[Rfam]
RNA: Antizyme RNA frameshifting stimulation element
Organism: Chrysochloris asiatica
RNA sequence: UGAUUCCCCUCACCCACCGCUGAAGAUCCCAGGUGGAUGAGGGGAUAGUCAGAGGGAUC
Numbered sequence: 001u002g003a004u005u006c007c008c009c010u011c012a013c014c015c016a017c018c019g020c021u022g023a024a025g026a027u028c029c030c031a032g033g034u035g036g037a038u039g040a041g042g043g044g045a046u047a048g049u050c051a052g053a054g055g056g057a058u059c
Stems, first nucleotide, its partner, number of pairs: 006044006014036005025059006